Shown here is a 122-nucleotide RNA sequence from Apolygus lucorum, a member of the family "mir-2513 microRNA precursor family". NCBI's taxonomy places the organism under Eukaryota, Hexapoda, Paraneoptera, Mirini, Apolygus. Gene Ontology terms of the family: RISC complex and miRNA-mediated post-transcriptional gene silencing.
[Rfam]
RNA sequence: CCUAAGGUCCAAACAGCUAAAACGCGAAUUUUGUUCUAACCAACCGAAAUAUUAUUUAAUAUAUUAAAUAAUAUUUCGGUUGGUUAGAACAAAAUUCGCGUUUUAGCUGUUUGGACCUUAGG
Numbered sequence: 001c002c003u004a005a006g007g008u009c010c011a012a013a014c015a016g017c018u019a020a021a022a023c024g025c026g027a028a029u030u031u032u033g034u035u036c037u038a039a040c041c042a043a044c045c046g047a048a049a050u051a052u053u054a055u056u057u058a059a060u061a062u063a064u065u066a067a068a069u070a071a072u073a074u075u076u077c078g079g080u081u082g083g084u085u086a087g088a089a090c091a092a093a094a095u096u097c098g099c100g101u102u103u104u105a106g107c108u109g110u111u112u113g114g115a116c117c118u119u120a121g122g
Base pairs, nucleotide, nucleotide: 001122002121003120004119005118006117007116008115009114010113011112012111013110014109015108016107017106018105019104020103021102022101023100024099025098026097027096028095030093031092033090034089035088036087037086038085039084040083041082042081044079045078046077047076048075
Dot-bracket structure: ((((((((((((((((((((((((((((.((.((((((((((.(((((..........................))))).)))))))))).)).))))))))))))))))))))))))))))